[Rfam]
RNA sequence: AACAGAGGACCCAGAAGCCUGAGUCUGAUGAAGCAAGAUUUUGCUGAUACACUCCUAGCAACAAAGGGUUGGAGAGACAAGCCCUUAUUUGGGGGCGGGAUCACAGGGCUGACUGUAUUACCCAACAUUA
Numbered sequence: 001a002a003c004a005g006a007g008g009a010c011c012c013a014g015a016a017g018c019c020u021g022a023g024u025c026u027g028a029u030g031a032a033g034c035a036a037g038a039u040u041u042u043g044c045u046g047a048u049a050c051a052c053u054c055c056u057a058g059c060a061a062c063a064a065a066g067g068g069u070u071g072g073a074g075a076g077a078c079a080a081g082c083c084c085u086u087a088u089u090u091g092g093g094g095g096c097g098g099g100a101u102c103a104c105a106g107g108g109c110u111g112a113c114u115g116u117a118u119u120a121c122c123c124a125a126c127a128u129u130a
Stems, first nucleotide, its partner, number of pairs: 003058001006056004017045001019043001021041006066123004077114001080110006089103001091101001
Rfam assigns this 130-nucleotide RNA from Rattus norvegicus to the family "Small Cajal body specific RNA 4".
scaRNAs are a specific class of small nuclear RNAs which localise to the Cajal bodies and guide the modification of RNA polymerase II transcribed spliceosomal RNAs U1, U2, U4, U5 and U12. ACA26 belongs to the H/ACA box class of guide RNAs as it has the predicted hairpin-hinge-hairpin-tail structure, conserved H/ACA-box motifs and is found associated with GAR1.
Lineage of the source: Eukaryota > Tetrapoda > Eutheria > Glires > Rattus.
It scores 85 bits against the family's covariance model.
The family is grouped with related families in Rfam's "SCARNA4 clan".